[Rfam]
Rfam assigns this 120-nucleotide RNA sequence from Molossus molossus to the family "Small nucleolar RNA SNORA33".

RNA sequence: AAGCCAGCUAAUGAGUCUGCUUACCUGAAUGUGUUCUGCAGAAAUUUAGAGAAAGUUGGCAAUAGGAAAGCCAUGUUACGAGCCUUAAAGUCAUUAAGGUCCCUGAAAAUGGCUAUAAGA
Numbered sequence: 001a002a003g004c005c006a007g008c009u010a011a012u013g014a015g016u017c018u019g020c021u022u023a024c025c026u027g028a029a030u031g032u033g034u035u036c037u038g039c040a041g042a043a044a045u046u047u048a049g050a051g052a053a054a055g056u057u058g059g060c061a062a063u064a065g066g067a068a069a070g071c072c073a074u075g076u077u078a079c080g081a082g083c084c085u086u087a088a089a090g091u092c093a094u095u096a097a098g099g100u101c102c103c104u105g106a107a108a109a110u111g112g113c114u115a116u117a118a119g120a
Stems, first nucleotide, its partner, number of pairs: 003060005016042005070113004082100007
Annotation
By type it is an H/ACA-box small nucleolar RNA. The source organism's lineage runs through Eukaryota, Craniata, Laurasiatheria, Molossidae and Molossus. Rfam describes the family as follows. ACA33 is a member of the H/ACA class of snoRNA that guide the sites of modification of uridines to pseudouridines.